[Rfam]
RNA sequence: AAAGGAGUAAUAGCACCCUCUUGAUAAAACAAGAAAAUGAUUAUUGCCCCUUUCUUU
Numbered sequence: 001a002a003a004g005g006a007g008u009a010a011u012a013g014c015a016c017c018c019u020c021u022u023g024a025u026a027a028a029a030c031a032a033g034a035a036a037a038u039g040a041u042u043a044u045u046g047c048c049c050c051u052u053u054c055u056u057u
Base pairs, nucleotide, nucleotide: 001053002052003051004050005049007047008046009045010044011043012042013041014039019034020033021032022031023030
RNA: Plastid-psbA-3 3UTR RNA